[Rfam]
RNA sequence: AUCUAUAAAAAGCCUAAUCCAGCCCAUGGAGCGGGGGAACCAAAUUUUUGGGGUGAAUGAAAAUCAGCUGUUGCAGCACGGAUGCUGCACAAGUGGAUCUUAAAGGGUAGUCUUUCUCAACCCUAACCCGACAGCUAACCUCGUAGGCGCAUAGAGAGAGGAGUG
Numbered sequence: 001a002u003c004u005a006u007a008a009a010a011a012g013c014c015u016a017a018u019c020c021a022g023c024c025c026a027u028g029g030a031g032c033g034g035g036g037g038a039a040c041c042a043a044a045u046u047u048u049u050g051g052g053g054u055g056a057a058u059g060a061a062a063a064u065c066a067g068c069u070g071u072u073g074c075a076g077c078a079c080g081g082a083u084g085c086u087g088c089a090c091a092a093g094u095g096g097a098u099c100u101u102a103a104a105g106g107g108u109a110g111u112c113u114u115u116c117u118c119a120a121c122c123c124u125a126a127c128c129c130g131a132c133a134g135c136u137a138a139c140c141u142c143g144u145a146g147g148c149g150c151a152u153a154g155a156g157a158g159a160g161g162a163g164u165g
Base pairs, nucleotide, nucleotide: 012148013147014146018030019029020028031144032143033142034141035140036139041050042049051129052128053127060101061100105123106122107121108120

Record summary: Rfam assigns this 165-nucleotide RNA sequence from Anaerovibrio lipolyticus to the family "c-di-AMP riboswitch aptamer (ydaO/yuaA leader)". The organism belongs to Anaerovibrio, within Bacteria.